[Rfam]
RNA: Glycine riboswitch aptamer
Organism: Microvirga makkahensis
RNA sequence: CCGCUGCAAGCGGGAGAAAGCCAGCAUGCUGACCGCCGAAGGAGCAGCCGCCCCGGAAACUCCCAGGCCCCGAGAACCGCUUGCAAGUG
Numbered sequence: 001c002c003g004c005u006g007c008a009a010g011c012g013g014g015a016g017a018a019a020g021c022c023a024g025c026a027u028g029c030u031g032a033c034c035g036c037c038g039a040a041g042g043a044g045c046a047g048c049c050g051c052c053c054c055g056g057a058a059a060c061u062c063c064c065a066g067g068c069c070c071c072g073a074g075a076a077c078c079g080c081u082u083g084c085a086a087g088u089g
Base pairs, nucleotide, nucleotide: 006084007083008082009081010080011079012078013077020033022031023030035068036067037066038064042062043061044060048056049055
Dot-bracket structure: .....((((((((......(.((......)).).((((...(((...((.....))...))).).)))........)))))))).....